[Rfam]
RNA sequence: UUCACUGUGAGGUGAAAUCUGAAGGAAGCAAAUGGCAAAACUUGGUUGUGACGAACAGAAAUCUGAUAGUAGGUCAUUACAACUUGGGCAACCUAGCCAUAGAUAGAAUAGCCCAAUGCCUCGACGGGAAGUGUGUAGUGAUAAAUCAGGUACGGCCAAGGGAAAGAGCAACGU
Numbered sequence: 001u002u003c004a005c006u007g008u009g010a011g012g013u014g015a016a017a018u019c020u021g022a023a024g025g026a027a028g029c030a031a032a033u034g035g036c037a038a039a040a041c042u043u044g045g046u047u048g049u050g051a052c053g054a055a056c057a058g059a060a061a062u063c064u065g066a067u068a069g070u071a072g073g074u075c076a077u078u079a080c081a082a083c084u085u086g087g088g089c090a091a092c093c094u095a096g097c098c099a100u101a102g103a104u105a106g107a108a109u110a111g112c113c114c115a116a117u118g119c120c121u122c123g124a125c126g127g128g129a130a131g132u133g134u135g136u137a138g139u140g141a142u143a144a145a146u147c148a149g150g151u152a153c154g155g156c157c158a159a160g161g162g163a164a165a166g167a168g169c170a171a172c173g174u
Base pairs, nucleotide, nucleotide: 001016002015003014004013005012006011028174029173036166041160042159043158044157045156046155047154048153049152050151062150063149064148065147066146067145073142074141075140077138078137079136080135081134083133086114087113088112089111093106094105095104
Annotation: Group II catalytic intron D1-D4-3: a 174-nucleotide RNA sequence from Vibrio campbellii. The source organism's lineage runs through Bacteria, Pseudomonadati, Pseudomonadota, Vibrio and Vibrio campbellii. The base pairs follow the family's consensus structure.